[Rfam]
RNA sequence: UAGUAUCGGUGAAGAUGCCGAUUACCCGCGAUGGGACGAAAAGACCCCGUGAACCUUUACUAUAGCUUAACAUUGAAUUUGGGUAAUUGAUGUGUAGGAUAGGCCGGAGACUUUGAAGCAGGUACGCCAGUAUUUGUGGAGUCGCUGUUGAAAUACGGCCCUUUGAUUAUUUGAGUUCUAACCCGUGGUACGGGGACACUGUUUGGUGGGUAGUUUGACUGGGGUGGUCGCCUCCAAAAGUGUAACGGAGGCUUCUAAAGGUGCCCUCAGGACGAUUGGUAACCGUCCGCAGAGUGUAAUGGCAUAAGGGCGCUUGACUGGGAGACAUACAAGUCGAUCAGGUAGGAAACUAGAGCAUAGUGAUCCGGUGUUUCCGCAUGGAAGGGACAUCGCUCAAAGGAUAAAAGGUACUCCGGGGAUAACAGGCUGAUCCCUCCCAAGAGCUCAUAUCGACGGAGGGGUUUGGCACCUCGAUGUCGGCUCGUCACAUCCUGGGGCUGGAGAAGGUCCCAAGGGUUGGGCUGUUCGCCCAUUAAAGUGGCACGCGAGCUGGGUUCAGAACGUCGUGAGACAGUUCGGUCUCUAUCUAUCGUGGGCGUA
Numbered sequence: 001u002a003g004u005a006u007c008g009g010u011g012a013a014g015a016u017g018c019c020g021a022u023u024a025c026c027c028g029c030g031a032u033g034g035g036a037c038g039a040a041a042a043g044a045c046c047c048c049g050u051g052a053a054c055c056u057u058u059a060c061u062a063u064a065g066c067u068u069a070a071c072a073u074u075g076a077a078u079u080u081g082g083g084u085a086a087u088u089g090a091u092g093u094g095u096a097g098g099a100u101a102g103g104c105c106g107g108a109g110a111c112u113u114u115g116a117a118g119c120a121g122g123u124a125c126g127c128c129a130g131u132a133u134u135u136g137u138g139g140a141g142u143c144g145c146u147g148u149u150g151a152a153a154u155a156c157g158g159c160c161c162u163u164u165g166a167u168u169a170u171u172u173g174a175g176u177u178c179u180a181a182c183c184c185g186u187g188g189u190a191c192g193g194g195g196a197c198a199c200u201g202u203u204u205g206g207u208g209g210g211u212a213g214u215u216u217g218a219c220u221g222g223g224g225u226g227g228u229c230g231c232c233u234c235c236a237a238a239a240g241u242g243u244a245a246c247g248g249a250g251g252c253u254u255c256u257a258a259a260g261g262u263g264c265c266c267u268c269a270g271g272a273c274g275a276u277u278g279g280u281a282a283c284c285g286u287c288c289g290c291a292g293a294g295u296g297u298a299a300u301g302g303c304a305u306a307a308g309g310g311c312g313c314u315u316g317a318c319u320g321g322g323a324g325a326c327a328u329a330c331a332a333g334u335c336g337a338u339c340a341g342g343u344a345g346g347a348a349a350c351u352a353g354a355g356c357a358u359a360g361u362g363a364u365c366c367g368g369u370g371u372u373u374c375c376g377c378a379u380g381g382a383a384g385g386g387a388c389a390u391c392g393c394u395c396a397a398a399g400g401a402u403a404a405a406a407g408g409u410a411c412u413c414c415g416g417g418g419a420u421a422a423c424a425g426g427c428u429g430a431u432c433c434c435u436c437c438c439a440a441g442a443g444c445u446c447a448u449a450u451c452g453a454c455g456g457a458g459g460g461g462u463u464u465g466g467c468a469c470c471u472c473g474a475u476g477u478c479g480g481c482u483c484g485u486c487a488c489a490u491c492c493u494g495g496g497g498c499u500g501g502a503g504a505a506g507g508u509c510c511c512a513a514g515g516g517u518u519g520g521g522c523u524g525u526u527c528g529c530c531c532a533u534u535a536a537a538g539u540g541g542c543a544c545g546c547g548a549g550c551u552g553g554g555u556u557c558a559g560a561a562c563g564u565c566g567u568g569a570g571a572c573a574g575u576u577c578g579g580u581c582u583c584u585a586u587c588u589a590u591c592g593u594g595g596g597c598g599u600a
Stems, first nucleotide, its partner, number of pairs: 005022005025596008034588003038583002046417004051413002053409005059214004066206002069203004075178016092161001102160005109143003118137008182194004217229004230252006253398001255355002261313006267293002270288005294303002318341004324335003343352003366392007374385002426467003430464001431461007441451002478553001479551004483545001484542005491516002494511006518532005559577004563572003

The record is a 600-nucleotide part of an RNA from Bacteroides finegoldii, which matches "Bacterial large subunit ribosomal RNA" in Rfam. Its Rfam clan is "LSU clan". The match comes from Rfam's covariance-model search (2767 bits). The base pairs follow the family's consensus structure, which is taken from published work.